[Rfam]
A member of the RNA family "mir-71 microRNA precursor family" from Caenorhabditis auriculariae, 71 nucleotides long. It scores 64 bits against the family's covariance model. Taxonomically the source falls in Caenorhabditis (Eukaryota, Protostomia, Rhabditida, Rhabditomorpha).
RNA sequence: UGACGGUGAAAGACAUGGGUAGUGAGACGAGUUGUUCUUGGCCGUAUCACUAUUCUGUUUUUCGCCGUCCG
Numbered sequence: 001u002g003a004c005g006g007u008g009a010a011a012g013a014c015a016u017g018g019g020u021a022g023u024g025a026g027a028c029g030a031g032u033u034g035u036u037c038u039u040g041g042c043c044g045u046a047u048c049a050c051u052a053u054u055c056u057g058u059u060u061u062u063c064g065c066c067g068u069c070c071g
Stems, first nucleotide, its partner, number of pairs: 008063008017055003021051005027045003